[Rfam]
RNA sequence: CCUAUGAUUCGGAUCAUAGUAGCCUAGUUCAUCCUGCGUUACUGGUAAGAGUUUCGUACGAAGAUCGAAUGACAAUGUACUGAAAUUUACUGACGUAAACGUCGUGAAUUUGCUGACAAGUAAAGCACGAAUCUGGAAGCCUCAUCCGGAAUAAGGC
Numbered sequence: 001c002c003u004a005u006g007a008u009u010c011g012g013a014u015c016a017u018a019g020u021a022g023c024c025u026a027g028u029u030c031a032u033c034c035u036g037c038g039u040u041a042c043u044g045g046u047a048a049g050a051g052u053u054u055c056g057u058a059c060g061a062a063g064a065u066c067g068a069a070u071g072a073c074a075a076u077g078u079a080c081u082g083a084a085a086u087u088u089a090c091u092g093a094c095g096u097a098a099a100c101g102u103c104g105u106g107a108a109u110u111u112g113c114u115g116a117c118a119a120g121u122a123a124a125g126c127a128c129g130a131a132u133c134u135g136g137a138a139g140c141c142u143c144a145u146c147c148g149g150a151a152u153a154a155g156g157c
Stems, first nucleotide, its partner, number of pairs: 002019006028069003033060001035058004041052003086099005101128002111118002132150006
Record summary:
The record is a 157-nucleotide RNA from Legionella feeleii, which matches "Group II catalytic intron D1-D4-7" in Rfam. The literature on the family includes a 2001 paper in EMBO J by Chu et al., "Control of branch-site choice by a group II intron". Its family is annotated with Group II intron splicing in the Gene Ontology. Rfam's curators write: Group II introns are found in rRNA, tRNA and mRNA of organelles in fungi, plants and protists, and also in mRNA in bacteria.